Background:
Shown here is a 96-nucleotide sequence from Granulosicoccus antarcticus, a member of the family "Group II catalytic intron D1-D4-1".
[Rfam]
RNA sequence: CGCCGAUGCGGGCAACCGCACUGGUGAUCAGACAGAAGUCAGCAGACGGCAUAGUAGCCAAACGCUCACCGUAAUGGGUGAGACACGGUGAAGGCC
Numbered sequence: 001c002g003c004c005g006a007u008g009c010g011g012g013c014a015a016c017c018g019c020a021c022u023g024g025u026g027a028u029c030a031g032a033c034a035g036a037a038g039u040c041a042g043c044a045g046a047c048g049g050c051a052u053a054g055u056a057g058c059c060a061a062a063c064g065c066u067c068a069c070c071g072u073a074a075u076g077g078g079u080g081a082g083a084c085a086c087g088g089u090g091a092a093g094g095c096c
Stems, first nucleotide, its partner, number of pairs: 001026002004023002007020005038047003048096003057089003067080001
It scores 64 bits against the family's covariance model. A reference for the family is Bonen and Vogel (2001), "The ins and outs of group II introns", Trends Genet. Rfam's curators write: Group II introns are found in rRNA, tRNA and mRNA of organelles in fungi, plants and protists, and also in mRNA in bacteria.